[Rfam]
RNA sequence: GUAAAUAUUUGGCAAAGCAGUGGAAACGCUGUGACGCAAAGCUCUAGAACCUGUGAAAUGGUAGUCAGCUGCACUU
Numbered sequence: 001g002u003a004a005a006u007a008u009u010u011g012g013c014a015a016a017g018c019a020g021u022g023g024a025a026a027c028g029c030u031g032u033g034a035c036g037c038a039a040a041g042c043u044c045u046a047g048a049a050c051c052u053g054u055g056a057a058a059u060g061g062u063a064g065u066c067a068g069c070u071g072c073a074c075u076u
Base pairs, nucleotide, nucleotide: 012037013036017032018031019030020029021028022027040070041069042068043067047066048065049062050061051060

The record is a 76-nucleotide RNA from Eubacterium ruminantium, which matches "c-di-GMP-I riboswitch aptamer" in Rfam. NCBI's taxonomy places the organism under Bacteria, Bacillati, Clostridia, Eubacteriales, Eubacterium. Clan: c-di-GMP_I riboswitch clan. GEMM was predicted in a large-scale screen for bacterial structured RNA regulatory elements.